[Rfam]
RNA sequence: GGGGCCCAGUGCCCCGGUCCCGCUCCGGUACCUGAUACGGCCGGAGUCAG
Dot-bracket structure: (((((.....)))))....(.((((((((..........))))))).).)
Rfam assigns this 50-nucleotide RNA sequence from Rubrivivax gelatinosus to the family "L17-Actino-Proteobacteria ribosomal protein leader". Lineage of the source: Bacteria > Betaproteobacteria > Burkholderiales > Sphaerotilaceae > Rubrivivax gelatinosus. Rfam classes the family as a cis-regulatory leader.